[Rfam]
RNA sequence: CCUGUAUCUAAUAAAAUUGAACAUGAUGAUUUAUAAGAAGAUCUUCGGGCGAGUACCGCUAGAUCUACUCUUACACAGAAUGGUAAGCACGUAUCUAUGCAGGGUGUAAGUAACUCAUAGAUAUAUUAGGAAGUUUAGAUUGAACUAUUCAAUACUAGAUUGAAAAAUUGAGAGUAAUUUAAAGAUCCGCUUAGACGAGCCAACAAUGGAAGGGCUCAACUUUUGGAUCUAGUCACUUGUUUAUAGUAAAUUGAUGAUAAUUCUCCUUUUGAUAGUGAUACAC
Numbered sequence: 001c002c003u004g005u006a007u008c009u010a011a012u013a014a015a016a017u018u019g020a021a022c023a024u025g026a027u028g029a030u031u032u033a034u035a036a037g038a039a040g041a042u043c044u045u046c047g048g049g050c051g052a053g054u055a056c057c058g059c060u061a062g063a064u065c066u067a068c069u070c071u072u073a074c075a076c077a078g079a080a081u082g083g084u085a086a087g088c089a090c091g092u093a094u095c096u097a098u099g100c101a102g103g104g105u106g107u108a109a110g111u112a113a114c115u116c117a118u119a120g121a122u123a124u125a126u127u128a129g130g131a132a133g134u135u136u137a138g139a140u141u142g143a144a145c146u147a148u149u150c151a152a153u154a155c156u157a158g159a160u161u162g163a164a165a166a167a168u169u170g171a172g173a174g175u176a177a178u179u180u181a182a183a184g185a186u187c188c189g190c191u192u193a194g195a196c197g198a199g200c201c202a203a204c205a206a207u208g209g210a211a212g213g214g215c216u217c218a219a220c221u222u223u224u225g226g227a228u229c230u231a232g233u234c235a236c237u238u239g240u241u242u243a244u245a246g247u248a249a250a251u252u253g254a255u256g257a258u259a260a261u262u263c264u265c266c267u268u269u270u271g272a273u274a275g276u277g278a279u280a281c282a283c
Stems, first nucleotide, its partner, number of pairs: 070087005091124009101115002128267004133262001138252003146243002154233004161226001163224003169219001171216002190199002200209002
RNA: Alphacoronavirus 3'UTR
Organism: Alphacoronavirus neovisontis